[Rfam]
Annotation: Rfam assigns this 53-nucleotide RNA sequence from Coregonus sp. 'balchen' to the family "UnaL2 LINE 3' element".
RNA sequence: UAAUUGCUCAAGGUAAGUCGCUCUGGAUAAGAGCGUCUGCUAAAUGACUAAAA
Numbered sequence: 001u002a003a004u005u006g007c008u009c010a011a012g013g014u015a016a017g018u019c020g021c022u023c024u025g026g027a028u029a030a031g032a033g034c035g036u037c038u039g040c041u042a043a044a045u046g047a048c049u050a051a052a053a
Stems, first nucleotide, its partner, number of pairs: 013040003019035006
Lineage of the source: Eukaryota > Eumetazoa > Euteleostomi > Euteleosteomorpha > Coregonus. Its family is annotated with transposition, RNA-mediated in the Gene Ontology. It is annotated as a cis-regulatory element.